[Rfam]
RNA: MIR5565 microRNA precursor family
Organism: Sorghum bicolor
RNA sequence: AUAGUCGGAUUCACAUCAAUCCAUAUAUGUUUGGAUGGAUUGGAGUAGAACUUGAACUAAAUUCCACCCCAAUCCACUCCAACAUACGUAGGACUGAGGUGAAUCCAACA
Numbered sequence: 001a002u003a004g005u006c007g008g009a010u011u012c013a014c015a016u017c018a019a020u021c022c023a024u025a026u027a028u029g030u031u032u033g034g035a036u037g038g039a040u041u042g043g044a045g046u047a048g049a050a051c052u053u054g055a056a057c058u059a060a061a062u063u064c065c066a067c068c069c070c071a072a073u074c075c076a077c078u079c080c081a082a083c084a085u086a087c088g089u090a091g092g093a094c095u096g097a098g099g100u101g102a103a104u105c106c107a108a109c110a
Stems, first nucleotide, its partner, number of pairs: 004109002007106008016097003020093003023089002026086006036076008045067002